[Rfam]
RNA: tRNA
Organism: Oryza meyeriana
RNA sequence: GCGGAUGUAGCCAAGUGGAUCAAGGUAGUGGAUUGUAAAUCGACCAUGCGUGGGUUCAAUUCCCGUCGUUUGCC
Numbered sequence: 001g002c003g004g005a006u007g008u009a010g011c012c013a014a015g016u017g018g019a020u021c022a023a024g025g026u027a028g029u030g031g032a033u034u035g036u037a038a039a040u041c042g043a044c045c046a047u048g049c050g051u052g053g054g055u056u057c058a059a060u061u062c063c064c065g066u067c068g069u070u071u072g073c074c
Stems, first nucleotide, its partner, number of pairs: 001073007010026003028044002031041002050066005